[Rfam]
RNA sequence: UGCAAGGGCACUCUGUGUUAUUCAUUCUUAAUAUGAUAAUCACAAUUUGUUACCUUGCUAUAAUAAAUCUAUUAAACCCUAUUCUACAUAGCUCCAAUAGCUAUGUGGUCAUAUUAAUAGAAACACA
Numbered sequence: 001u002g003c004a005a006g007g008g009c010a011c012u013c014u015g016u017g018u019u020a021u022u023c024a025u026u027c028u029u030a031a032u033a034u035g036a037u038a039a040u041c042a043c044a045a046u047u048u049g050u051u052a053c054c055u056u057g058c059u060a061u062a063a064u065a066a067a068u069c070u071a072u073u074a075a076a077c078c079c080u081a082u083u084c085u086a087c088a089u090a091g092c093u094c095c096a097a098u099a100g101c102u103a104u105g106u107g108g109u110c111a112u113a114u115u116a117a118u119a120g121a122a123a124c125a126c127a
Base pairs, nucleotide, nucleotide: 002058003057004056005055006054007053010050011049014044015043016042017040018039019038020037021036023035024034069120071118072117073116075115076114084108086106087105088104089103090102091101092100093099
A member of the RNA family "Small nucleolar RNA psi18S-841/snoR66" from Diatraea saccharalis, 127 nucleotides long.
Rfam's curators write: psi18S-841 is a member of the H/ACA class of snoRNA. This family is responsible for guiding the modification of uridine 841 in Drosophila 18S rRNA to pseudouridine.
Taxonomically the source falls in Diatraea (Eukaryota, Allotriocarida, Lepidoptera, Heteroneura).